ALIL pseudoknot: a 117-nucleotide sequence from Muricoccus pecuniae. It scores 104 bits against the family's covariance model. NCBI's taxonomy places the organism under Bacteria, Pseudomonadota, Alphaproteobacteria, Acetobacterales, Muricoccus. Rfam classes the family as a cis-regulatory element.
RNA sequence: CGCGUAUUUUGCCCAGGCGGAGCUCGACCGCCGGUUCAGGCCAUGAUCGCCUUCAUCAACGAUCACCGCGAGGUCUACGGUGUCGAGCCGAUCUGCAAGAUGCUGCCGAUUGCCCCA
Numbered sequence: 001c002g003c004g005u006a007u008u009u010u011g012c013c014c015a016g017g018c019g020g021a022g023c024u025c026g027a028c029c030g031c032c033g034g035u036u037c038a039g040g041c042c043a044u045g046a047u048c049g050c051c052u053u054c055a056u057c058a059a060c061g062a063u064c065a066c067c068g069c070g071a072g073g074u075c076u077a078c079g080g081u082g083u084c085g086a087g088c089c090g091a092u093c094u095g096c097a098a099g100a101u102g103c104u105g106c107c108g109a110u111u112g113c114c115c116c117a
Stems, first nucleotide, its partner, number of pairs: 016032005079116002082113001089112002092109002095106003
Dot-bracket structure: ...............(((((.......)))))..............................................((.(......((.((.(((......))).)).))).)).